[Rfam]
RNA: Small nucleolar RNA SNORD25
RNA sequence: AUAAUCGAUGAUGAUCUAUACAGACCUGUACUGACUUUCGAGCGUGAUCGCAAUUCGAAAUGAACAUCUAAGGGACUGAGAUUUC
Numbered sequence: 001a002u003a004a005u006c007g008a009u010g011a012u013g014a015u016c017u018a019u020a021c022a023g024a025c026c027u028g029u030a031c032u033g034a035c036u037u038u039c040g041a042g043c044g045u046g047a048u049c050g051c052a053a054u055u056c057g058a059a060a061u062g063a064a065c066a067u068c069u070a071a072g073g074g075a076c077u078g079a080g081a082u083u084u085c
Base pairs, nucleotide, nucleotide: 003083004082005081006080